[Rfam]
Nucleotides: 077
Base pairs, nucleotide, nucleotide: 002075003074004073005072006071007070008068009067010066011065012064013063014062016060017059018058019057023054024053025052026051028050029049030048
Number, partner (000 for none) and nucleotide at each position: 001000u002075g003074c004073u005072c006071g007070c008068c009067g010066c011065c012064u013063g014062g015000a016060a017059c018058u019057u020000c021000g022000u023054c024053u025052c026051a027000a028050c029049c030048u031000u032000a033000g034000a035000g036000a037000u038000c039000a040000u041000c042000a043000g044000g045000c046000g047000u048030a049029g050028g051026u052025g053024a054023g055000c056000a057019a058018a059017g060016u061000u062014u063013c064012a065011g066010g067009u068008g069000u070007g071006c072005g073004a074003g075002c076000a077000u
This 77-nucleotide RNA sequence from Steinernema carpocapsae belongs to the Rfam family "mir-87 microRNA precursor family".
Its family is annotated with miRNA-mediated post-transcriptional gene silencing and RISC complex in the Gene Ontology.